[Rfam]
A member of the RNA family "mir-7563 microRNA precursor family" from Ameiurus melas, 76 nucleotides long. The family has 3 seed sequences and 362 matches in Rfam 15.1.
Nucleotides: 076
Base pairs, nucleotide, nucleotide: 001074002073003072004071005070006069007068008067009066010065011064012063013062014061017058018057019056020055021054022053023052024051025050026049027048030045031044033042034041035040
Number, partner (000 for none) and nucleotide at each position: 001074a002073c003072c004071g005070u006069g007068u008067a009066c010065u011064u012063a013062c014061c015000u016000g017058c018057u019056a020055u021054a022053u023052g024051g025050u026049a027048g028000g029000a030045g031044a032000a033042a034041u035040a036000c037000a038000c039000g040035u041034a042033u043000c044031u045030c046000g047000g048027c049026u050025a051024c052023u053022a054021u055020a056019u057018a058017g059000a060000c061014g062013g063012u064011a065010a066009g067008u068007a069006c070005a071004c072003g073002g074001u075000u076000u